[Rfam]
A member of the RNA family "SAM riboswitch aptamer (S box leader)" from Thermoanaerobacterium thermosaccharolyticum, 95 nucleotides long.
Lineage of the source: Bacteria > Bacillota > Thermoanaerobacteraceae > Thermoanaerobacterium > Thermoanaerobacterium thermosaccharolyticum.
The base pairs follow the family's consensus structure, which is taken from published work.
RNA sequence: CUCUUAUCAAGAGUAGCGGAGGGACUGGCCCUAUGAAGCUCGGCAACCGGAUAUCACGGUGCCAAUUCCAGCAGCGUAUCGCUGAAAGAUGGGAG
Numbered sequence: 001c002u003c004u005u006a007u008c009a010a011g012a013g014u015a016g017c018g019g020a021g022g023g024a025c026u027g028g029c030c031c032u033a034u035g036a037a038g039c040u041c042g043g044c045a046a047c048c049g050g051a052u053a054u055c056a057c058g059g060u061g062c063c064a065a066u067u068c069c070a071g072c073a074g075c076g077u078a079u080c081g082c083u084g085a086a087a088g089a090u091g092g093g094a095g
Stems, first nucleotide, its partner, number of pairs: 001095008013041001015040003021031003025071004042063004047059002049055002067087001072084005